This 50-nucleotide RNA from Shimia aestuarii belongs to the Rfam family "SAM/SAH riboswitch aptamer". The source organism's lineage runs through Bacteria, Pseudomonadati, Pseudomonadota, Alphaproteobacteria and Shimia.
[Rfam]
RNA sequence: UCGUCGUCACAACGGCUUCCUGGCGUGGCGACUUGUGAAAUAACGGAGCA
Numbered sequence: 001u002c003g004u005c006g007u008c009a010c011a012a013c014g015g016c017u018u019c020c021u022g023g024c025g026u027g028g029c030g031a032c033u034u035g036u037g038a039a040a041u042a043a044c045g046g047a048g049c050a
Base pairs, nucleotide, nucleotide: 004031005030006029007028008027009026010025013022014021015049016048017047019046020045

Pairs were carried over by alignment from the consensus structure, which is taken from published work.